[Rfam]
RNA: Iron response element I
Nucleotides: 036
Base pairs, nucleotide, nucleotide: 001036003034004033005032006031007030008029010028012027013026014025015024016023017021
Number, partner (000 for none) and nucleotide at each position: 001036g002000a003034g004033g005032u006031u007030c008029c009000c010028g011000c012027u013026u014025c015024a016023a017021c018000a019000g020000u021017g022000a023016u024015u025014g026013g027012a028010c029008g030007g031006a032005a033004c034003c035000c036001c